[Rfam]
About this RNA:
The record is a 68-nucleotide RNA from delta proteobacterium NaphS2, which matches "int-alpA RNA" in Rfam. NCBI's taxonomy places the organism under Bacteria, delta/epsilon subdivisions, Deltaproteobacteria. Acidobacteria (1 example), Planctomycetes (1 example), Proteobacteria. The base pairs follow the family's consensus structure, which is taken from published work.

RNA sequence: GCCCAGGAUAGCCAAGGCCAGGCGAACGCCGGGGACCCUGCCCGGUUUCCUGGGCCCCACCAACAGGG
Number, nucleotide and partner (000 for none) at each position: 001g055002c054003c053004c052005a051006g050007g049008a048009u000010a000011g023012c022013c021014a000015a000016g000017g000018c000019c000020a000021g013022g012023c011024g000025a000026a000027c000028g000029c045030c044031g043032g042033g041034g000035a000036c068037c067038c066039u065040g064041c033042c032043c031044g030045g029046u000047u000048u008049c007050c006051u005052g004053g003054g002055c001056c000057c000058c000059a000060c000061c000062a000063a000064c040065a039066g038067g037068g036